A member of the RNA family "DUF805b RNA" from Chryseobacterium salivictor, 33 nucleotides long.
Clan: DUF805 clan.
It is annotated as a cis-regulatory element.
Lineage of the source: Bacteria > Bacteroidota > Flavobacteriales > Weeksellaceae > Chryseobacterium.
The family's consensus secondary structure is taken from published work.
It scores 44 bits against the family's covariance model.

Nucleotides: 033
Stems, first nucleotide, its partner, number of pairs: 002021004010032003
Number, partner (000 for none) and nucleotide at each position: 001000c002021a003020a004019g005018c006000g007000g008000u009000a010032u011031c012030c013000g014000a015000a016000a017000a018005g019004c020003u021002u022000a023000a024000a025000g026000a027000g028000u029000a030012g031011g032010a033000a